[Rfam]
RNA sequence: AGCCCACACGCAGGAUCGCAUAUUGAAGCAUCACAAAUCUACGAUGAGGCAAAAGAGAUUUUGACCUCAAAAAAAAACAAUUGCAAUGCUUUAGGGAAAGUCCCCGGACCUCAUGGCAGAAAGUGCCGCCAAUAAUCUUACUGGUCUUUCUGAGUUUCCAUAAGGGAUUGGUCAUUUCGUGGGCUGAGAUCCUCCUUUUUUUUUUUUGAAUCCGUAAAAAAAAAAAAAAGGGAAUGCUCCUCAAUGAUCUGACCUUGUGGCUCAGUGAUUGUCAUAGUUACAGUCAUGCGAUUGCGGUUGUCCUUGCCCUUCUUGUGGGGGAUUAGGAUGAUUGUAACUCAACGGGGCUCACUCGCGUACGUGGUC
Numbered sequence: 001a002g003c004c005c006a007c008a009c010g011c012a013g014g015a016u017c018g019c020a021u022a023u024u025g026a027a028g029c030a031u032c033a034c035a036a037a038u039c040u041a042c043g044a045u046g047a048g049g050c051a052a053a054a055g056a057g058a059u060u061u062u063g064a065c066c067u068c069a070a071a072a073a074a075a076a077a078c079a080a081u082u083g084c085a086a087u088g089c090u091u092u093a094g095g096g097a098a099a100g101u102c103c104c105c106g107g108a109c110c111u112c113a114u115g116g117c118a119g120a121a122a123g124u125g126c127c128g129c130c131a132a133u134a135a136u137c138u139u140a141c142u143g144g145u146c147u148u149u150c151u152g153a154g155u156u157u158c159c160a161u162a163a164g165g166g167a168u169u170g171g172u173c174a175u176u177u178c179g180u181g182g183g184c185u186g187a188g189a190u191c192c193u194c195c196u197u198u199u200u201u202u203u204u205u206u207u208g209a210a211u212c213c214g215u216a217a218a219a220a221a222a223a224a225a226a227a228a229a230g231g232g233a234a235u236g237c238u239c240c241u242c243a244a245u246g247a248u249c250u251g252a253c254c255u256u257g258u259g260g261c262u263c264a265g266u267g268a269u270u271g272u273c274a275u276a277g278u279u280a281c282a283g284u285c286a287u288g289c290g291a292u293u294g295c296g297g298u299u300g301u302c303c304u305u306g307c308c309c310u311u312c313u314u315g316u317g318g319g320g321g322a323u324u325a326g327g328a329u330g331a332u333u334g335u336a337a338c339u340c341a342a343c344g345g346g347g348c349u350c351a352c353u354c355g356c357g358u359a360c361g362u363g364g365u366c
Stems, first nucleotide, its partner, number of pairs: 002366001004364004008358004014293006023094009099349002102347004115127004128145004133140001159259006168252004172247004230240003295334010
The record is a 366-nucleotide RNA from Mortierella sp. AM989, which matches "RNase MRP" in Rfam. The family's RNA type in Rfam is ribozyme. A search with the family's covariance model found it, with a score of 93 bits. For this family Rfam cites "Secondary structure probing of the human RNase MRP RNA reveals the potential for MRP RNA subsets" (Walker and Avis, Biochem Biophys Res Commun, 2005).